[Rfam]
RNA sequence: UGUCGAUGUUUUCAUCGGUAGUUAACUGCAGCCGGUUUUAUUUUUCCUCGACAGUUAACUGCAAAGGGGUAU
Dot-bracket structure: ...........((.(..(((((((((((.......................)))))))))))..).))....
Rfam assigns this 72-nucleotide RNA sequence from Medicago truncatula to the family "MIR2629 microRNA precursor family".
Gene Ontology terms of the family: miRNA-mediated post-transcriptional gene silencing and RISC complex.